Rfam assigns this 83-nucleotide RNA from Erinaceus europaeus to the family "mir-425 microRNA precursor family".

RNA sequence: GAGAGGCGGUGGAAUGACACGAUCACUCCCGCUGAGCGGCCCGCACACGCCGUCGGGAAUGUCGUGUCCGCCCGGCGCUCUUU
Number, nucleotide and partner (000 for none) at each position: 001g000002a000003g000004a000005g000006g078007c077008g000009g000010u074011g073012g072013a000014a000015u000016g068017a067018c066019a065020c064021g063022a062023u061024c000025a000026c000027u058028c057029c056030c055031g054032c000033u052034g051035a000036g050037c049038g000039g000040c000041c000042c000043g000044c000045a000046c000047a000048c000049g037050c036051c034052g033053u000054c031055g030056g029057g028058a027059a000060u000061g023062u022063c021064g020065u019066g018067u017068c016069c000070g000071c000072c012073c011074g010075g000076c000077g007078c006079u000080c000081u000082u000083u000
Pairs were carried over by alignment from the consensus structure, which was predicted with RNAalifold. Taxonomically the source falls in Erinaceus (Eukaryota, Chordata, Dipnotetrapodomorpha, Eutheria).